[Rfam]
RNA sequence: GGGCAGAUGUCCGAACUGGCUAAGGAACCGGUCUUGAAAACCGGCGAAGAUGUAACAGUCGUCUGGGUUCGAAUCCCAGUCUGCCCG
Numbered sequence: 001g002g003g004c005a006g007a008u009g010u011c012c013g014a015a016c017u018g019g020c021u022a023a024g025g026a027a028c029c030g031g032u033c034u035u036g037a038a039a040a041c042c043g044g045c046g047a048a049g050a051u052g053u054a055a056c057a058g059u060c061g062u063c064u065g066g067g068u069u070c071g072a073a074u075c076c077c078a079g080u081c082u083g084c085c086c087g
Stems, first nucleotide, its partner, number of pairs: 001086007010026003028044005063079005

A member of the RNA family "tRNA" from Sneathia vaginalis, 87 nucleotides long. Rfam's curators write: Transfer RNA (tRNA) molecules are approximately 80 nucleotides in length. It is annotated as a transfer RNA. The literature on the family includes a 1993 paper in Trends Biochem Sci by Hou, "The tertiary structure of tRNA and the development of the genetic code".